[Rfam]
RNA sequence: UUCUAGCCCCGAUGGUAGCGGCAUCCCCCGGCGAGGCCGUGGCCGAAGCCGGGGAUAUAGCGGACAGCGGGUUGUAAU
Numbered sequence: 001u002u003c004u005a006g007c008c009c010c011g012a013u014g015g016u017a018g019c020g021g022c023a024u025c026c027c028c029c030g031g032c033g034a035g036g037c038c039g040u041g042g043c044c045g046a047a048g049c050c051g052g053g054g055a056u057a058u059a060g061c062g063g064a065c066a067g068c069g070g071g072u073u074g075u076a077a078u
Stems, first nucleotide, its partner, number of pairs: 009070003013066002018061002023056004028052005035044003
This 78-nucleotide RNA sequence from Kaistella treverensis belongs to the Rfam family "Flavo-1 RNA".
A search with the family's covariance model found it, with a score of 52 bits.
NCBI's taxonomy places the organism under Bacteria, Pseudomonadati, Flavobacteriia, Weeksellaceae, Kaistella.
It is annotated as a small RNA.